[Rfam]
RNA sequence: ACGGUGUUCCGCUGCACAUGGUUUUGGUUUGCAAGAGCAUCUG
Numbered sequence: 001a002c003g004g005u006g007u008u009c010c011g012c013u014g015c016a017c018a019u020g021g022u023u024u025u026g027g028u029u030u031g032c033a034a035g036a037g038c039a040u041c042u043g
Stems, first nucleotide, its partner, number of pairs: 003041007013033004018028001

Rfam assigns this 43-nucleotide RNA sequence from Bacillus sp. B-jedd to the family "Ribosomal protein L19 leader". A search with the family's covariance model found it, with a score of 41 bits. Rfam describes the family as follows. This family is a putative r-protein leader autoregulatory structure found in B. subtilis and other low-GC Gram-positive bacteria.